[Rfam]
RNA: Small nucleolar RNA SNORA5
Organism: Hucho hucho
RNA sequence: UGAAGCCUUGUCAAAUUAAGUGUUUCUUCUACAGUGGACUGCACUGGCCAAAAUGGCUGCCAAAGUGAAACUGUAGUUCAUGGGCCCCACAUCACUUUGUCAUGGUAGUUGGGGAUACAUUUGUGCUAAAGACAUAC
Numbered sequence: 001u002g003a004a005g006c007c008u009u010g011u012c013a014a015a016u017u018a019a020g021u022g023u024u025u026c027u028u029c030u031a032c033a034g035u036g037g038a039c040u041g042c043a044c045u046g047g048c049c050a051a052a053a054u055g056g057c058u059g060c061c062a063a064a065g066u067g068a069a070a071c072u073g074u075a076g077u078u079c080a081u082g083g084g085c086c087c088c089a090c091a092u093c094a095c096u097u098u099g100u101c102a103u104g105g106u107a108g109u110u111g112g113g114g115a116u117a118c119a120u121u122u123g124u125g126c127u128a129a130a131g132a133c134a135u136a137c
Base pairs, nucleotide, nucleotide: 002060004058005057019045020044021043022042023041027037028036074128075127076126077125078123085114086113087112088111089110